The family of this 232-nucleotide RNA sequence from Chanos chanos is "Small nucleolar RNA SNORA53". By type it is an H/ACA-box small nucleolar RNA. The match comes from Rfam's covariance-model search (102 bits). Gene Ontology terms of the family: RNA processing and nucleolus. Lineage of the source: Eukaryota > Gnathostomata > Teleostomi > Clupeocephala > Chanos. Rfam describes the family as follows. The snoRNA ACA53 belongs to the H/ACA family of pseudouridylation guide snoRNAs.
RNA sequence: GACAUGCUCCUUAGAUCCAUCUCUGGGGAAAUGUCCAAGUCUGAAGCUGCUCUCCAUCUUUUAGAUGUUGUGUAGUUUCAGUCUGGCAGUUCCCAGCAGCUUUUUUGCUGUACAGUUGGAGGUGCUUGAGUCAUUGGCAUGUCAGAGCAGUCUACCUGCACCUCUAGCCCCACUGCUGCACUGGACCUUCUUAUGGAUGCCACCAGUGUAGCAAUGCUGGAGAGCAGACAAA
Numbered sequence: 001g002a003c004a005u006g007c008u009c010c011u012u013a014g015a016u017c018c019a020u021c022u023c024u025g026g027g028g029a030a031a032u033g034u035c036c037a038a039g040u041c042u043g044a045a046g047c048u049g050c051u052c053u054c055c056a057u058c059u060u061u062u063a064g065a066u067g068u069u070g071u072g073u074a075g076u077u078u079c080a081g082u083c084u085g086g087c088a089g090u091u092c093c094c095a096g097c098a099g100c101u102u103u104u105u106u107g108c109u110g111u112a113c114a115g116u117u118g119g120a121g122g123u124g125c126u127u128g129a130g131u132c133a134u135u136g137g138c139a140u141g142u143c144a145g146a147g148c149a150g151u152c153u154a155c156c157u158g159c160a161c162c163u164c165u166a167g168c169c170c171c172a173c174u175g176c177u178g179c180a181c182u183g184g185a186c187c188u189u190c191u192u193a194u195g196g197a198u199g200c201c202a203c204c205a206g207u208g209u210a211g212c213a214a215u216g217c218u219g220g221a222g223a224g225c226a227g228a229c230a231a232a
Base pairs, nucleotide, nucleotide: 002142003141004140005139006138007137008136010130011129012128013127014126018124019123020122021121022120023119024118025117026093027092028091029090035086036085037084041081042080043079045078047075048074049073050072055067056066057065058064096111097110098109099108100107156227157226158225159224164220166218167217168216176211177210178209179208180207181206182205183204187199189197